[Rfam]
RNA sequence: UGAAAUCACUAGGGGUGCCAUUUUAAAUGGCUGAGAUCAACGUACAACGUUGGGACUCUUUGAACCUGAACUGGCUAACAAACCAGCGGAGGAAAGUGGCAGGUGGACUAU
Numbered sequence: 001u002g003a004a005a006u007c008a009c010u011a012g013g014g015g016u017g018c019c020a021u022u023u024u025a026a027a028u029g030g031c032u033g034a035g036a037u038c039a040a041c042g043u044a045c046a047a048c049g050u051u052g053g054g055a056c057u058c059u060u061u062g063a064a065c066c067u068g069a070a071c072u073g074g075c076u077a078a079c080a081a082a083c084c085a086g087c088g089g090a091g092g093a094a095a096g097u098g099g100c101a102g103g104u105g106g107a108c109u110a111u
Stems, first nucleotide, its partner, number of pairs: 006099005011059004016053001017031005038052005065092003071086004
Dot-bracket structure: .....(((((((((.((((((.....)))))......(((((.....))))))..)))).....(((...((((........))))...)))..)))))............
RNA: TPP riboswitch aptamer (THI element)